[Rfam]
SAM riboswitch aptamer (S box leader): a 100-nucleotide sequence from Lysinibacillus composti.
The source organism's lineage runs through Bacteria, Bacillati, Caryophanales, Bacillaceae and Lysinibacillus.
Its family is annotated with regulation of gene expression in the Gene Ontology.
Pairs were carried over by alignment from the consensus structure, which is taken from published work.
The family is grouped with related families in Rfam's "SAM clan".
The SAM riboswitch is found upstream of a number of genes which code for proteins involved in methionine or cysteine biosynthesis in Gram-positive bacteria. The SAM riboswitch acts at the level of transcription termination control.
It scores 85 bits against the family's covariance model.

RNA sequence: UUCUUAUCAAGAGAAGUUGAGGGACUGGCCCGAUGAAGCUUCAGCAACCAACUAGUAUGUAAGGUGCUAAAUCCAGUAGGCGUAGGCCUAAAGAUGAGAA
Numbered sequence: 001u002u003c004u005u006a007u008c009a010a011g012a013g014a015a016g017u018u019g020a021g022g023g024a025c026u027g028g029c030c031c032g033a034u035g036a037a038g039c040u041u042c043a044g045c046a047a048c049c050a051a052c053u054a055g056u057a058u059g060u061a062a063g064g065u066g067c068u069a070a071a072u073c074c075a076g077u078a079g080g081c082g083u084a085g086g087c088c089u090a091a092a093g094a095u096g097a098g099a100a
Stems, first nucleotide, its partner, number of pairs: 001100008013042005021031003025076004043068004048064002050060001053057001072092001077090005